RNA: TPP riboswitch aptamer (THI element)
Organism: Sulfitobacter sp. THAF37
RNA sequence: CGCUGAACCGAGGGGGGUCCCGACAAGGGGCUGAGAUAUCGCUGGCACCUUUGAGCAGCGCGAUGACCCUUUGAACCUGAUCCGGAUCAUGCCGGCGAAGGGACAGGACCGCUGCGUUUU
Numbered sequence: 001c002g003c004u005g006a007a008c009c010g011a012g013g014g015g016g017g018u019c020c021c022g023a024c025a026a027g028g029g030g031c032u033g034a035g036a037u038a039u040c041g042c043u044g045g046c047a048c049c050u051u052u053g054a055g056c057a058g059c060g061c062g063a064u065g066a067c068c069c070u071u072u073g074a075a076c077c078u079g080a081u082c083c084g085g086a087u088c089a090u091g092c093c094g095g096c097g098a099a100g101g102g103a104c105a106g107g108a109c110c111g112c113u114g115c116g117u118u119u120u
Base pairs, nucleotide, nucleotide: 008106010104011070012069013068014067017031018030019029020028021027038064039063040062041061042060076101077100078099082095083094084093085092